[Rfam]
RNA: Small nucleolar RNA SNORA48
RNA sequence: UGUCCCUGACCUGGGUAGAGAGGCACCUGCUUGGUGGUGCUCAUCUCAUAUCAGUCAGGGACAAAGCAACUCCUUGUUUAUCCCAGCUUGGCUUUGGGUCCGUGCCUGCGCCUGGUUCAUGCCCUGGACACACGG
Numbered sequence: 001u002g003u004c005c006c007u008g009a010c011c012u013g014g015g016u017a018g019a020g021a022g023g024c025a026c027c028u029g030c031u032u033g034g035u036g037g038u039g040c041u042c043a044u045c046u047c048a049u050a051u052c053a054g055u056c057a058g059g060g061a062c063a064a065a066g067c068a069a070c071u072c073c074u075u076g077u078u079u080a081u082c083c084c085a086g087c088u089u090g091g092c093u094u095u096g097g098g099u100c101c102g103u104g105c106c107u108g109c110g111c112c113u114g115g116u117u118c119a120u121g122c123c124c125u126g127g128a129c130a131c132a133c134g135g
Stems, first nucleotide, its partner, number of pairs: 001063008011054004018047003022041006075130006090123003097118002100115003104111002